[Rfam]
RNA sequence: CCAAAUGGAAACAACCUAAGUACGCGGCGUCCUGCCGCAACGGUUGCAUGACCUACAUCCUGUAGG
Numbered sequence: 001c002c003a004a005a006u007g008g009a010a011a012c013a014a015c016c017u018a019a020g021u022a023c024g025c026g027g028c029g030u031c032c033u034g035c036c037g038c039a040a041c042g043g044u045u046g047c048a049u050g051a052c053c054u055a056c057a058u059c060c061u062g063u064a065g066g
Base pairs, nucleotide, nucleotide: 012046013045014044015043016042024038025037026036027035028034052066053065054064055063056062

About this RNA
A member of the RNA family "Bacillaceae-1 RNA" from Sporosarcina sp. BI001-red, 66 nucleotides long. NCBI's taxonomy places the organism under Bacteria, Bacillati, Bacillota, Caryophanaceae, Sporosarcina.